[Rfam]
RNA sequence: UGAAUAGACAGGGGGAGCUGGAGAUAGCCGGCUGAGAGGGGAUACCUUAAUAAUCCCGACCCUUAAACCUGAUCUGGAUAAUGCCAGCGUAGGAAAUCGCGUUGUAACCAAUU
Numbered sequence: 001u002g003a004a005u006a007g008a009c010a011g012g013g014g015g016a017g018c019u020g021g022a023g024a025u026a027g028c029c030g031g032c033u034g035a036g037a038g039g040g041g042a043u044a045c046c047u048u049a050a051u052a053a054u055c056c057c058g059a060c061c062c063u064u065a066a067a068c069c070u071g072a073u074c075u076g077g078a079u080a081a082u083g084c085c086a087g088c089g090u091a092g093g094a095a096a097u098c099g100c101g102u103u104g105u106a107a108c109c110a111a112u113u
Base pairs, nucleotide, nucleotide: 007100010097011063012062013061014060017032018031019030020029021028039057040056041055042054043053068093069092070091071090074087075086076085077084
RNA: TPP riboswitch aptamer (THI element)